[Rfam]
RNA sequence: UAAAUGUAAUUACAUAUAUCCCGUAUAAAUCUGGAAAUAGGGUCCAGACGUUUCUACAAACUGCCGUAAACAGUUACAGGCUACGUGAUUAUUAGUGUAUGAG
Numbered sequence: 001u002a003a004a005u006g007u008a009a010u011u012a013c014a015u016a017u018a019u020c021c022c023g024u025a026u027a028a029a030u031c032u033g034g035a036a037a038u039a040g041g042g043u044c045c046a047g048a049c050g051u052u053u054c055u056a057c058a059a060a061c062u063g064c065c066g067u068a069a070a071c072a073g074u075u076a077c078a079g080g081c082u083a084c085g086u087g088a089u090u091a092u093u094a095g096u097g098u099a100u101g102a103g
Base pairs, nucleotide, nucleotide: 018089019088020087022085023084024083025082030048031047032046033045034044035043059075060074061073062072063071
This 103-nucleotide RNA sequence from Vallitalea pronyensis belongs to the Rfam family "Purine riboswitch aptamer". The match comes from Rfam's covariance-model search (64 bits). NCBI's taxonomy places the organism under Bacteria, Bacillati, Clostridia, Lachnospirales, Vallitalea.